Small Cajal body specific RNA 3: a 135-nucleotide RNA sequence from Oceanites oceanicus.
Clan: SCARNA3 clan.
Rfam's curators write: scaRNAs are a specific class of small nuclear RNAs which localise to the Cajal bodies and guide the modification of RNA polymerase II transcribed spliceosomal RNAs U1, U2, U4, U5 and U12.
Lineage of the source: Eukaryota > Bilateria > Dipnotetrapodomorpha > Archosauria > Oceanites.
Rfam classes the family as a small Cajal body RNA.
Pairs were carried over by alignment from the consensus structure, which was predicted with RNAalifold.

RNA sequence: CUUGGAAGCUGCUGGGACCGGUCGUGGGCAAGAGAAAUAUCUUUUGUCCACCGUUGCAGUCUUCCUAGAUCAAAGUGGAGGUCUCUGUCUGCUUUAGGAGAGCCAACUAAACCGGAUCGUUCCCCUCCAUACAUG
Numbered sequence: 001c002u003u004g005g006a007a008g009c010u011g012c013u014g015g016g017a018c019c020g021g022u023c024g025u026g027g028g029c030a031a032g033a034g035a036a037a038u039a040u041c042u043u044u045u046g047u048c049c050a051c052c053g054u055u056g057c058a059g060u061c062u063u064c065c066u067a068g069a070u071c072a073a074a075g076u077g078g079a080g081g082u083c084u085c086u087g088u089c090u091g092c093u094u095u096a097g098g099a100g101a102g103c104c105a106a107c108u109a110a111a112c113c114g115g116a117u118c119g120u121u122c123c124c125c126u127c128c129a130u131a132c133a134u135g
Stems, first nucleotide, its partner, number of pairs: 004065003008060005024051006032043003077128005085119001087117003091113001093111005